A member of the RNA family "MIR1520 microRNA precursor family" from Hibiscus trionum, 117 nucleotides long. Pairs were carried over by alignment from the consensus structure, which was predicted with RNAalifold.
RNA sequence: CUCCAAUUGGGUGUGACACGUGUCACCACCUGAUUGGAGGUGGAAAAUUAAUUAAAUAAAUUAAAUAAAAAUAAUUAAAGACUUCCAAUAAGGUGGUGACACGUGUCAUCAUCUUAU
Numbered sequence: 001c002u003c004c005a006a007u008u009g010g011g012u013g014u015g016a017c018a019c020g021u022g023u024c025a026c027c028a029c030c031u032g033a034u035u036g037g038a039g040g041u042g043g044a045a046a047a048u049u050a051a052u053u054a055a056a057u058a059a060a061u062u063a064a065a066u067a068a069a070a071a072u073a074a075u076u077a078a079a080g081a082c083u084u085c086c087a088a089u090a091a092g093g094u095g096g097u098g099a100c101a102c103g104u105g106u107c108a109u110c111a112u113c114u115u116a117u
Base pairs, nucleotide, nucleotide: 015107016106017105018104020102021101024098025097026096028094029093030092031091033089034088035087
Rfam 15.1 lists 1,934 matches to the family in 15 species. Rfam links the family to the GO terms RISC complex and miRNA-mediated post-transcriptional gene silencing. Its Rfam clan is "MIR1520 microRNA precursor clan". The match comes from Rfam's covariance-model search (57 bits).